[Rfam]
RNA sequence: UGGCUGUGAUGACAAACAAACCUCGUUUCUCGAUGCUGAGACUUGAUUUGUUCAAGGACCAGAACUGUGCUGACCUUAAUUUGUGCGUGUCUGAGCCAC
Numbered sequence: 001u002g003g004c005u006g007u008g009a010u011g012a013c014a015a016a017c018a019a020a021c022c023u024c025g026u027u028u029c030u031c032g033a034u035g036c037u038g039a040g041a042c043u044u045g046a047u048u049u050g051u052u053c054a055a056g057g058a059c060c061a062g063a064a065c066u067g068u069g070c071u072g073a074c075c076u077u078a079a080u081u082u083g084u085g086c087g088u089g090u091c092u093g094a095g096c097c098a099c
Stems, first nucleotide, its partner, number of pairs: 001098004
Description
Rfam assigns this 99-nucleotide RNA sequence from Oryza sativa to the family "small nucleolar RNA snoR126". The family's RNA type in Rfam is C/D-box small nucleolar RNA. The literature on the family includes a 2009 paper in Nucleic Acids Res by Chen and Wu, "Mining small RNA sequencing data: a new approach to identify small nucleolar RNAs in Arabidopsis". Lineage of the source: Eukaryota > Streptophytina > Poales > Poaceae > Oryza sativa. The base pairs follow the family's consensus structure, which was predicted with RNAalifold.